This 152-nucleotide sequence from Rhodamnia argentea belongs to the Rfam family "MIR828 microRNA precursor family". Its family is annotated with miRNA-mediated post-transcriptional gene silencing and RISC complex in the Gene Ontology. For this family Rfam cites "A diverse and evolutionarily fluid set of microRNAs in Arabidopsis thaliana" (Rajagopalan et al., Genes Dev, 2006). Pairs were carried over by alignment from the consensus structure, which was predicted with RNAalifold. The match comes from Rfam's covariance-model search (90 bits).
[Rfam]
RNA sequence: GUAAUGUUUCUUGCUCAAAUGAGUAUUCCAACCACAGUUAGCACCAAGAACUAAGACAGAACAGUUUGGUCGCGGUUGCUUUAGCAACUGAAACUGUUUUGCUCUCUCUCGUGCCGCUGUUCUGAGAUGCUCAUUUGAGCAAGCAAUGUUAU
Numbered sequence: 001g002u003a004a005u006g007u008u009u010c011u012u013g014c015u016c017a018a019a020u021g022a023g024u025a026u027u028c029c030a031a032c033c034a035c036a037g038u039u040a041g042c043a044c045c046a047a048g049a050a051c052u053a054a055g056a057c058a059g060a061a062c063a064g065u066u067u068g069g070u071c072g073c074g075g076u077u078g079c080u081u082u083a084g085c086a087a088c089u090g091a092a093a094c095u096g097u098u099u100u101g102c103u104c105u106c107u108c109u110c111g112u113g114c115c116g117c118u119g120u121u122c123u124g125a126g127a128u129g130c131u132c133a134u135u136u137g138a139g140c141a142a143g144c145a146a147u148g149u150u151a152u
Stems, first nucleotide, its partner, number of pairs: 004149005010143018029124002